Shown here is a 73-nucleotide RNA sequence from Solanum tuberosum, a member of the family "tRNA".
Pairs were carried over by alignment from the consensus structure, which is taken from published work.
Rfam classes the family as a transfer RNA.

[Rfam]
RNA sequence: GGGUGUAUAGCUCAGUUGGUAGAGCAUUGGGCUUUUAACCGAAUGGUUGCAGGUUCAAGUCUUGUUAUACCCA
Numbered sequence: 001g002g003g004u005g006u007a008u009a010g011c012u013c014a015g016u017u018g019g020u021a022g023a024g025c026a027u028u029g030g031g032c033u034u035u036u037a038a039c040c041g042a043a044u045g046g047u048u049g050c051a052g053g054u055u056c057a058a059g060u061c062u063u064g065u066u067a068u069a070c071c072c073a
Stems, first nucleotide, its partner, number of pairs: 001072007010025004027043002030040002049065005